[Rfam]
RNA sequence: UGAAAGUGCCUUUCCGUAUGUGGACGAUCGUGAUGUGAGAAUCUUGAUUGUCCCACUACGGGAGGCGCUUUCGUCAUUCACACGCCGUUACGGCUGGCGCAGUCUCCACGGAUCCAG
Numbered sequence: 001u002g003a004a005a006g007u008g009c010c011u012u013u014c015c016g017u018a019u020g021u022g023g024a025c026g027a028u029c030g031u032g033a034u035g036u037g038a039g040a041a042u043c044u045u046g047a048u049u050g051u052c053c054c055a056c057u058a059c060g061g062g063a064g065g066c067g068c069u070u071u072c073g074u075c076a077u078u079c080a081c082a083c084g085c086c087g088u089u090a091c092g093g094c095u096g097g098c099g100c101a102g103u104c105u106c107c108a109c110g111g112a113u114c115c116a117g
Base pairs, nucleotide, nucleotide: 002072003071004070005069006068007067008066009065010064011063012062013061015060016059017058020056021055022054023053025050026049027048028047030045032043033042034041099115101113103111104110
Dot-bracket structure: .((((((((((((.(((..((((.((((.(.(((......))).).))))..)))).)))))))))))))))..........................(.(.((.....)).).)..